[Rfam]
RNA sequence: AGUGAUGAUGAGUGAGAUGAGUCUGACCUGGUAUUGCCAAAUAAAAUUUGGCUCUGACCUGGAUAUGAUUGCUUAAUCUUCUCUCUGAACUA
Numbered sequence: 001a002g003u004g005a006u007g008a009u010g011a012g013u014g015a016g017a018u019g020a021g022u023c024u025g026a027c028c029u030g031g032u033a034u035u036g037c038c039a040a041a042u043a044a045a046a047u048u049u050g051g052c053u054c055u056g057a058c059c060u061g062g063a064u065a066u067g068a069u070u071g072c073u074u075a076a077u078c079u080u081c082u083c084u085c086u087g088a089a090c091u092a
Stems, first nucleotide, its partner, number of pairs: 002090002036052004